[Rfam]
RNA: Group II catalytic intron D1-D4-4
RNA sequence: CUGCCGGUGUGAGUCCGGUCCGGGUAGCUGCCAGGUGGGCCCGGUAGCAGGCUGGCGGUCUCGUGUGGAAACGUGCGGGGUCGAAUCGUAUCGUCCCGCAAGGACGCGCUCGUGCGACGUGUGCGAGUUGACUGCUUGCCGGAA
Number, nucleotide and partner (000 for none) at each position: 001c000002u000003g000004c000005c000006g000007g000008u000009g000010u000011g000012a000013g000014u000015c000016c000017g000018g000019u000020c044021c043022g042023g041024g040025u000026a000027g000028c000029u000030g000031c000032c000033a000034g000035g000036u000037g000038g000039g000040c024041c023042c022043g021044g020045u000046a000047g000048c000049a000050g000051g092052c000053u090054g089055g000056c083057g082058g081059u080060c079061u078062c000063g000064u000065g074066u000067g072068g000069a000070a000071a000072c067073g000074u065075g000076c000077g000078g061079g060080g059081u058082c057083g056084a000085a000086u000087c000088g000089u054090a053091u000092c051093g000094u000095c000096c000097c000098g000099c000100a000101a120102g000103g118104a000105c116106g115107c114108g000109c000110u000111c000112g000113u000114g107115c106116g105117a000118c103119g000120u101121g000122u000123g139124c138125g137126a000127g000128u000129u000130g000131a000132c000133u000134g000135c000136u000137u125138g124139c123140c000141g000142g000143a000144a000